RNA sequence: GAGCCAUGAUGCCAGGUGCGCUCUGGUGAUGGUAGGGUCCAUCACAACCGUCUGAUCUCCAGACGACAACAGCGCCUCUGAGCUC
Numbered sequence: 001g002a003g004c005c006a007u008g009a010u011g012c013c014a015g016g017u018g019c020g021c022u023c024u025g026g027u028g029a030u031g032g033u034a035g036g037g038u039c040c041a042u043c044a045c046a047a048c049c050g051u052c053u054g055a056u057c058u059c060c061a062g063a064c065g066a067c068a069a070c071a072g073c074g075c076c077u078c079u080g081a082g083c084u085c
Stems, first nucleotide, its partner, number of pairs: 001085004

Notes:
small nucleolar RNA snoR114: an 85-nucleotide RNA from Theobroma cacao. NCBI's taxonomy places the organism under Eukaryota, Embryophyta, Euphyllophyta, Malvales, Theobroma. The match comes from Rfam's covariance-model search (74 bits). Its family is annotated with RNA processing and nucleolus in the Gene Ontology.